Notes:
This 122-nucleotide RNA sequence from Erinaceus europaeus belongs to the Rfam family "Small nucleolar RNA SNORA33". Its family is annotated with nucleolus and RNA processing in the Gene Ontology. The family's consensus secondary structure was predicted with PFOLD. The family's RNA type in Rfam is H/ACA-box small nucleolar RNA. A search with the family's covariance model found it, with a score of 80 bits. The organism belongs to Erinaceus, within Eukaryota.
RNA sequence: AAGACAGAGAAAUAGAGAACAUUAAAAACUAAUCUGUAUUUUUUGUAACUGGCGAUAGCAAUGCCAUAUUACAAGCCUUAAUGACAUUGGGGUCUUUAAGGUCCCUGAAAGUGGCUAUAUGA
Number, nucleotide and partner (000 for none) at each position: 001a000002a050003g049004a000005c000006a000007g000008a000009g000010a000011a000012a037013u036014a035015g034016a033017g000018a000019a000020c000021a000022u000023u000024a000025a000026a000027a000028a000029c000030u000031a000032a000033u016034c015035u014036g013037u012038a000039u000040u000041u000042u000043u000044u000045g000046u000047a000048a000049c003050u002051g000052g000053c000054g000055a000056u000057a000058g000059c000060a000061a000062u000063g115064c114065c113066a112067u000068a000069u000070u000071a000072c000073a000074a000075g102076c101077c100078u099079u098080a097081a096082u000083g094084a093085c092086a000087u000088u000089g000090g000091g000092g085093u084094c083095u000096u081097u080098a079099a078100g077101g076102u075103c000104c000105c000106u000107g000108a000109a000110a000111g000112u066113g065114g064115c063116u000117a000118u000119a000120u000121g000122a000